[Rfam]
mir-2944 microRNA precursor family: an 81-nucleotide RNA from Oryctes borbonicus. A search with the family's covariance model found it, with a score of 58 bits.
RNA sequence: GUUUCCGAUUUGAAGGAACUUCUGGUGUGAUAUGUUGUUUUAAAUCUUAUCACAGCCAGUAGUUACCUACGAAAUGGAGCA
Numbered sequence: 001g002u003u004u005c006c007g008a009u010u011u012g013a014a015g016g017a018a019c020u021u022c023u024g025g026u027g028u029g030a031u032a033u034g035u036u037g038u039u040u041u042a043a044a045u046c047u048u049a050u051c052a053c054a055g056c057c058a059g060u061a062g063u064u065a066c067c068u069a070c071g072a073a074a075u076g077g078a079g080c081a
Base pairs, nucleotide, nucleotide: 003079004078005077006076009072014068015067016066017064018063019062020061022059023058024056026054027053028052029051030050031049032048034046